Source information:
Shown here is a 115-nucleotide sequence from Camphora micrantha, a member of the family "Small nucleolar RNA snoR100".
RNA sequence: AAAUGAAGGUAGCAUGGUAGGGUGCACAUAGAUUAAUCUACGAGAGGGUCUUCAUGUCUGCUUGCUUUGAUGCCCUCGGGCCUUGAUAUCGCGGGCCUGGAUCUGACCCAUACUC
Numbered sequence: 001a002a003a004u005g006a007a008g009g010u011a012g013c014a015u016g017g018u019a020g021g022g023u024g025c026a027c028a029u030a031g032a033u034u035a036a037u038c039u040a041c042g043a044g045a046g047g048g049u050c051u052u053c054a055u056g057u058c059u060g061c062u063u064g065c066u067u068u069g070a071u072g073c074c075c076u077c078g079g080g081c082c083u084u085g086a087u088a089u090c091g092c093g094g095g096c097c098u099g100g101a102u103c104u105g106a107c108c109c110a111u112a113c114u115c
Stems, first nucleotide, its partner, number of pairs: 012025004046098005056087003060081003
Dot-bracket structure: ...........((((......))))....................(((((.....(((.(((................)))...)))......))))).................
About this RNA:
The match comes from Rfam's covariance-model search (94 bits).